[Rfam]
RNA sequence: UCUCAGUCACGGGAUCUUGGGGGCGAGAUGAGUUUGAAUAGAAUCCAACUGGCCCGCAAAGUCCCGCUUCUGUGA
Numbered sequence: 001u002c003u004c005a006g007u008c009a010c011g012g013g014a015u016c017u018u019g020g021g022g023g024c025g026a027g028a029u030g031a032g033u034u035u036g037a038a039u040a041g042a043a044u045c046c047a048a049c050u051g052g053c054c055c056g057c058a059a060a061g062u063c064c065c066g067c068u069u070c071u072g073u074g075a
Base pairs, nucleotide, nucleotide: 004072005071006070010066011065012064013063015061017059018058019057021055022054023053024052026050027049029047030046
RNA: mir-193 microRNA precursor family
Organism: Salvelinus namaycush